[Rfam]
RNA sequence: UUGCAAAAUCAGGGCCAUAGCAGAAGCGCUCACAGCAUGGCCAUGUGAGAUUCCAGUGAAUCUGUAAAUUUUGCU
Numbered sequence: 001u002u003g004c005a006a007a008a009u010c011a012g013g014g015c016c017a018u019a020g021c022a023g024a025a026g027c028g029c030u031c032a033c034a035g036c037a038u039g040g041c042c043a044u045g046u047g048a049g050a051u052u053c054c055a056g057u058g059a060a061u062c063u064g065u066a067a068a069u070u071u072u073g074c075u
Base pairs, nucleotide, nucleotide: 013042014041015040016039019075020074021073022072023071024070025069026038028036048063049062050061051060052059053058
RNA: Mammalian CPEB3 ribozyme
Organism: Crocodylus porosus